The family of this 65-nucleotide RNA from Ancylostoma ceylanicum is "Small nucleolar RNA sn3060". Lineage of the source: Eukaryota > Chromadorea > Rhabditida > Ancylostomatidae > Ancylostoma. Its family is annotated with RNA processing and nucleolus in the Gene Ontology. A search with the family's covariance model found it, with a score of 47 bits. The family's RNA type in Rfam is C/D-box small nucleolar RNA.
RNA sequence: GCUUCAGUGAAGAAAACAAACCCAGCUCUCUGAAUUCGAGGUGAGGAACGAAAACUCUGAGAAGC
Dot-bracket structure: (((((.......................................................)))))
Numbered sequence: 001g002c003u004u005c006a007g008u009g010a011a012g013a014a015a016a017c018a019a020a021c022c023c024a025g026c027u028c029u030c031u032g033a034a035u036u037c038g039a040g041g042u043g044a045g046g047a048a049c050g051a052a053a054a055c056u057c058u059g060a061g062a063a064g065c
Stems, first nucleotide, its partner, number of pairs: 001065005